The record is an 86-nucleotide RNA sequence from Saprolegnia diclina, which matches "Selenocysteine transfer RNA" in Rfam.
The literature on the family includes a 1997 paper in Nucleic Acids Res by Lowe and Eddy, "tRNAscan-SE: a program for improved detection of transfer RNA genes in genomic sequence".
A search with the family's covariance model found it, with a score of 75 bits.
RNA sequence: GCAAGCGUGAUCCUGGCUGGUGCCGGGCGCGGUCUUCAAAACCGUGGGCCAUUAGCGUGGCAGGGGUUCGAUUCCUCCUCGUCUGC
Numbered sequence: 001g002c003a004a005g006c007g008u009g010a011u012c013c014u015g016g017c018u019g020g021u022g023c024c025g026g027g028c029g030c031g032g033u034c035u036u037c038a039a040a041a042c043c044g045u046g047g048g049c050c051a052u053u054a055g056c057g058u059g060g061c062a063g064g065g066g067u068u069c070g071a072u073u074c075c076u077c078c079u080c081g082u083c084u085g086c
Base pairs, nucleotide, nucleotide: 001086002085003084005082006081007080009078012027013026014025015024016023017022028046029045030044031043032042033041048061049060050059051058052057063077064076065075066074

NCBI's taxonomy places the organism under Eukaryota, Sar, Oomycota, Saprolegnia, Saprolegnia diclina.